Bacterial RNase P class A: a 385-nucleotide sequence from Bifidobacterium choloepi. It scores 286 bits against the family's covariance model. The family is grouped with related families in Rfam's "RNaseP clan". The family's RNA type in Rfam is ribozyme. Its family is annotated with dimeric ribonuclease P complex, ribonuclease P activity and tRNA processing in the Gene Ontology. Taxonomically the source falls in Bifidobacterium (Bacteria, Actinomycetota, Actinomycetes, Bifidobacteriaceae).
RNA sequence: UGAGACCCCUCGAUGGCCGCGGCCUCGUCCCCUGGUUCCAGGAAGACGAGGCUGAGGAACUUCCGGGCUCCGCAGAGCACGAUGGCGGAUAACGUCCGCCCAGGGCGACCUGAGAGAUAGCGCAGCAGAGAACAGACCGCCCCGCUCCUUCGGGAGCGGAGCAAGGGUGAAACGGCGGUGCAAGAGACCACCGGGCCGCUGGUAACAGUCGGUCGCAUGGCAAGCCUCAUCGGGAGCAAGGCCAAGCAGAAGGCGCACAUGGGCUGCUCGUCCAUUGCCUUCGGGUAGGCCGCUAGAGCCUGGCAGCAAUGUCAGGUCGAGAUGGAUGGCCAUCCGUGCCGGUUCGCCGGCAUGACAAAACCCGGGGUAUGAGGGGUCUCAUUUU
Number, nucleotide and partner (000 for none) at each position: 001u381002g380003a379004g378005a377006c376007c375008c374009c373010u372011c000012g334013a333014u332015g331016g330017c329018c328019g000020c054021g053022g052023c051024c050025u049026c048027g047028u046029c000030c000031c000032c000033u000034g000035g000036u000037u000038c000039c000040a000041g000042g000043a000044a000045g000046a028047c027048g026049a025050g024051g023052c022053u021054g020055a000056g000057g000058a000059a368060c367061u366062u000063c365064c364065g363066g362067g361068c236069u235070c234071c233072g000073c000074a000075g269076a268077g267078c266079a000080c232081g231082a230083u229084g228085g099086c098087g097088g096089a095090u000091a000092a000093c000094g000095u089096c088097c087098g086099c085100c114101c112102a111103g110104g109105g000106c000107g000108a000109c104110c103111u102112g101113a000114g100115a227116g226117a000118u000119a000120g225121c224122g221123c220124a000125g000126c000127a000128g000129a000130g000131a000132a000133c000134a000135g000136a000137c166138c165139g162140c161141c000142c159143c158144g157145c156146u155147c154148c000149u000150u000151c000152g000153g000154g147155a146156g145157c144158g143159g142160a000161g140162c139163a000164a000165g138166g137167g000168u000169g000170a000171a000172a000173c000174g192175g191176c000177g189178g188179u187180g000181c000182a000183a000184g000185a000186g000187a179188c178189c177190a000191c175192c174193g216194g214195g213196c212197c211198g210199c208200u207201g206202g000203u000204a000205a000206c201207a200208g199209u000210c198211g197212g196213u195214c194215g000216c193217a000218u000219g000220g123221c122222a000223a000224g121225c120226c116227u115228c084229a083230u082231c081232g080233g071234g070235a069236g068237c000238a000239a000240g291241g290242c289243c288244a000245a000246g000247c000248a000249g282250a281251a280252g279253g278254c277255g000256c000257a000258c000259a000260u274261g273262g272263g271264c270265u000266g078267c077268u076269c075270g264271u263272c262273c261274a260275u000276u000277g254278c253279c252280u251281u250282c249283g000284g000285g000286u000287a000288g243289g242290c241291c240292g000293c000294u000295a000296g000297a000298g317299c316300c315301u314302g313303g312304c311305a310306g000307c000308a000309a000310u305311g304312u303313c302314a301315g300316g299317u298318c000319g000320a000321g000322a000323u000324g000325g000326a000327u000328g018329g017330c016331c015332a014333u013334c012335c000336g000337u000338g000339c000340c000341g000342g000343u000344u000345c000346g000347c000348c000349g000350g000351c000352a000353u000354g000355a000356c000357a000358a000359a000360a000361c067362c066363c065364g064365g063366g061367g060368u059369a000370u000371g000372a010373g009374g008375g007376g006377u005378c004379u003380c002381a001382u000383u000384u000385u000